Annotation
This 54-nucleotide sequence belongs to the Rfam family "Glutamine riboswitch aptamer (glnA leader)". Rfam's curators put it in the seed alignment. For this family Rfam cites "Structural and Dynamic Basis for Low-Affinity, High-Selectivity Binding of L-Glutamine by the Glutamine Riboswitch" (Ren et al., Cell Rep, 2015). The family's consensus secondary structure is taken from published work.
RNA sequence: AUCGUUCAUCCUUUCAUAGGACGGAAGUAAGUAAUGAUACUGAAGGAACGCAUC
Numbered sequence: 001a002u003c004g005u006u007c008a009u010c011c012u013u014u015c016a017u018a019g020g021a022c023g024g025a026a027g028u029a030a031g032u033a034a035u036g037a038u039a040c041u042g043a044a045g046g047a048a049c050g051c052a053u054c
Base pairs, nucleotide, nucleotide: 003050004049005048006047007046009021010020011019012018024051030041031040032039